[Rfam]
RNA sequence: CUGCUGCUAACGAGUAACAACAAACGGCAGAUUUACCAGGAACCACCUCAUUUACCCGCCCGGCUCCCCCGUGCGGGUUUUCUU
Numbered sequence: 001c002u003g004c005u006g007c008u009a010a011c012g013a014g015u016a017a018c019a020a021c022a023a024a025c026g027g028c029a030g031a032u033u034u035a036c037c038a039g040g041a042a043c044c045a046c047c048u049c050a051u052u053u054a055c056c057c058g059c060c061c062g063g064c065u066c067c068c069c070c071g072u073g074c075g076g077g078u079u080u081u082c083u084u
Base pairs, nucleotide, nucleotide: 038051040049041048054078055077056076057075058074059073061071062070063069
RNA: CyaR/Rye RNA